The record is a 104-nucleotide RNA from Cruoricaptor ignavus, which matches "SAM riboswitch aptamer (S box leader)" in Rfam. It scores 82 bits against the family's covariance model. A reference for the family is Grundy and Henkin (1998), "The S box regulon: a new global transcription termination control system for methionine and cysteine biosynthesis genes in gram-positive bacteria", Mol Microbiol. The base pairs follow the family's consensus structure, which is taken from published work. The source organism's lineage runs through Bacteria, Bacteroidota, Flavobacteriales, Weeksellaceae and Cruoricaptor.
[Rfam]
RNA sequence: AAGUUAUCAGGAAAGGCUGAGGGAAUAGACCCUGCGAAGCCUUAGCAACCCUCAGGAUUGAGAAGGUGCUAAAUUCUACCUAAAAAUUUUAGGAAAGAUAACCG
Number, nucleotide and partner (000 for none) at each position: 001a000002a000003g102004u101005u100006a099007u098008c097009a000010g000011g000012a000013a043014a042015g041016g040017c039018u000019g000020a000021g032022g031023g030024a000025a000026u078027a077028g076029a075030c023031c022032c021033u000034g000035c000036g000037a000038a000039g017040c016041c015042u014043u013044a070045g069046c068047a067048a000049c066050c065051c062052u061053c060054a059055g000056g000057a000058u000059u054060g053061a052062g051063a000064a000065g050066g049067u047068g046069c045070u044071a000072a000073a000074u096075u029076c028077u027078a026079c093080c092081u091082a090083a089084a088085a000086a000087u000088u084089u083090u082091a081092g080093g079094a000095a000096a074097g008098a007099u006100a005101a004102c003103c000104g000